[Rfam]
RNA sequence: UCCAUCGUGAGGUGGAAUCUGAAGGAAGCGUAAGACAAACCUCGGACUUGACGAACAGAAAUCGGAUAGAAGGCCCUGGGCAGCGGGGUAACCCAGCAAUGGAUGGGGAGGCCCAAUAGUCGUCCGGAACGCUGCGGGGGUAGAUCCGGCGAGCACCGAGGGAAAGAGGGAUGA
Numbered sequence: 001u002c003c004a005u006c007g008u009g010a011g012g013u014g015g016a017a018u019c020u021g022a023a024g025g026a027a028g029c030g031u032a033a034g035a036c037a038a039a040c041c042u043c044g045g046a047c048u049u050g051a052c053g054a055a056c057a058g059a060a061a062u063c064g065g066a067u068a069g070a071a072g073g074c075c076c077u078g079g080g081c082a083g084c085g086g087g088g089u090a091a092c093c094c095a096g097c098a099a100u101g102g103a104u105g106g107g108g109a110g111g112c113c114c115a116a117u118a119g120u121c122g123u124c125c126g127g128a129a130c131g132c133u134g135c136g137g138g139g140g141u142a143g144a145u146c147c148g149g150c151g152a153g154c155a156c157c158g159a160g161g162g163a164a165a166g167a168g169g170g171a172u173g174a
Stems, first nucleotide, its partner, number of pairs: 001016006029173003036166001040161006047153004062149006073141003077137001080135006086114004092107004
RNA: Group II catalytic intron D1-D4-3